[Rfam]
Shown here is a 65-nucleotide RNA from Bacillus sp. V5-8f, a member of the family "Listeria sRNA sbrA". It scores 46 bits against the family's covariance model.
RNA sequence: GUACAACUAGAUCCAUACCCCUGACUCCCUAAAUUGGAUAGCAGCUUUGCUGCUAUCCCUUUUCU
Numbered sequence: 001g002u003a004c005a006a007c008u009a010g011a012u013c014c015a016u017a018c019c020c021c022u023g024a025c026u027c028c029c030u031a032a033a034u035u036g037g038a039u040a041g042c043a044g045c046u047u048u049g050c051u052g053c054u055a056u057c058c059c060u061u062u063u064c065u
Stems, first nucleotide, its partner, number of pairs: 008031002036058010
The source organism's lineage runs through Bacteria, Bacillota, Bacilli, Bacillaceae and Bacillus. Pairs were carried over by alignment from the consensus structure, which was predicted with WAR.